A member of the RNA family "Small nucleolar RNA snoR27" from Salvia splendens, 86 nucleotides long. It is annotated as a C/D-box small nucleolar RNA. Its Rfam clan is "snR68 clan". The organism belongs to core Calosphace, within Eukaryota. The base pairs follow the family's consensus structure, which was predicted with WAR.
[Rfam]
RNA sequence: UUUGGAUCAGUGAUGCUGUAUAUUAUUGCGUUAUCUAUCUCUAAUGAAUUCUUUUUUGAAGAUAACUUAUUAUCCUGAGAUUCAAU
Dot-bracket structure: .((((((........................................................................)))))).